RNA sequence: GGCCUGUUCGUCAAGUGGUUAAGACACCGCCCUUUCACGGCGGGUUCAUGGGUUCGAAUCCCGUACAGGUCA
Numbered sequence: 001g002g003c004c005u006g007u008u009c010g011u012c013a014a015g016u017g018g019u020u021a022a023g024a025c026a027c028c029g030c031c032c033u034u035u036c037a038c039g040g041c042g043g044g045u046u047c048a049u050g051g052g053u054u055c056g057a058a059u060c061c062c063g064u065a066c067a068g069g070u071c072a
Base pairs, nucleotide, nucleotide: 001071002070003069004068005067006066007065010025011024012023027043028042029041030040031039048064049063050062051061052060
The record is a 72-nucleotide sequence from bacterium 1XD42-8, which matches "tRNA" in Rfam.
The base pairs follow the family's consensus structure, which is taken from published work.
Its family is annotated with triplet codon-amino acid adaptor activity in the Gene Ontology.
A search with the family's covariance model found it, with a score of 60 bits.